RNA sequence: CCAAGGGCUGACGCCCUUGGCUAUUCAGUGACGCCCCUGUCGGGGCU
Numbered sequence: 001c002c003a004a005g006g007g008c009u010g011a012c013g014c015c016c017u018u019g020g021c022u023a024u025u026c027a028g029u030g031a032c033g034c035c036c037c038u039g040u041c042g043g044g045g046c047u
Stems, first nucleotide, its partner, number of pairs: 001020008033046005